[Rfam]
RNA: transfer-messenger RNA
RNA sequence: ACAGGAGUAAGUCUGCUUAGAUGGCAUGUCGCUUUGGGCAAAGCGUAAAAAGCCCAAAUAAAAUUAAACGCAAACAACGUUAAAUUCGCUCCUGCUUACGCUAAAGCUGCGUAAGUUCAGUUGAGCCUGAAAUUUAAGUCAUACUAUCUAGCUUAAUUUUCGGUCAUCUUUGAUAGUGUAGCCUUGCGUUUGACAAGCGUUGAGGUGAAAUAAAGUCUUAGCCUUGCUUUUGAGUUUUGGAAGAUGAGCGAAGUAGGGUGAAGUAGUCAUCUUUGCUAAGCAUGUAGAGGUCUUUGUGGGAUUAUUUUUGGAC
Numbered sequence: 001a002c003a004g005g006a007g008u009a010a011g012u013c014u015g016c017u018u019a020g021a022u023g024g025c026a027u028g029u030c031g032c033u034u035u036g037g038g039c040a041a042a043g044c045g046u047a048a049a050a051a052g053c054c055c056a057a058a059u060a061a062a063a064u065u066a067a068a069c070g071c072a073a074a075c076a077a078c079g080u081u082a083a084a085u086u087c088g089c090u091c092c093u094g095c096u097u098a099c100g101c102u103a104a105a106g107c108u109g110c111g112u113a114a115g116u117u118c119a120g121u122u123g124a125g126c127c128u129g130a131a132a133u134u135u136a137a138g139u140c141a142u143a144c145u146a147u148c149u150a151g152c153u154u155a156a157u158u159u160u161c162g163g164u165c166a167u168c169u170u171u172g173a174u175a176g177u178g179u180a181g182c183c184u185u186g187c188g189u190u191u192g193a194c195a196a197g198c199g200u201u202g203a204g205g206u207g208a209a210a211u212a213a214a215g216u217c218u219u220a221g222c223c224u225u226g227c228u229u230u231u232g233a234g235u236u237u238u239g240g241a242a243g244a245u246g247a248g249c250g251a252a253g254u255a256g257g258g259u260g261a262a263g264u265a266g267u268c269a270u271c272u273u274u275g276c277u278a279a280g281c282a283u284g285u286a287g288a289g290g291u292c293u294u295u296g297u298g299g300g301a302u303u304a305u306u307u308u309u310g311g312a313c
Stems, first nucleotide, its partner, number of pairs: 003309008014298003019293004025284005030045005035056005101125002105122005127163006134156004140151001141179007181206005186200003192217003221259009235250001237248001240274004245269003